[Rfam]
RNA sequence: GUUUACCCCAGAGGGGUGCCGCCUAAGAACACAGGUGAUUUGGCCUUAACUAAUGGGAAAAAAAGAGGCUAAAUGAUAUGCAGCAAAGCAAUGGCUUGUGUUCUCAGGUCACCCCUUUGGGGUACAU
Numbered sequence: 001g002u003u004u005a006c007c008c009c010a011g012a013g014g015g016g017u018g019c020c021g022c023c024u025a026a027g028a029a030c031a032c033a034g035g036u037g038a039u040u041u042g043g044c045c046u047u048a049a050c051u052a053a054u055g056g057g058a059a060a061a062a063a064a065g066a067g068g069c070u071a072a073a074u075g076a077u078a079u080g081c082a083g084c085a086a087a088g089c090a091a092u093g094g095c096u097u098g099u100g101u102u103c104u105c106a107g108g109u110c111a112c113c114c115c116u117u118u119g120g121g122g123u124a125c126a127u
Stems, first nucleotide, its partner, number of pairs: 007121002011117004016112003026104011
Dot-bracket structure: ......((..((((.(((.......(((((((((((.........................................................))))))))))).....))).))))..))......

This 127-nucleotide RNA from Hibiscus syriacus belongs to the Rfam family "MIR398 microRNA precursor family". It scores 56 bits against the family's covariance model. Lineage of the source: Eukaryota > Viridiplantae > Embryophyta > eudicotyledons > Hibiscus.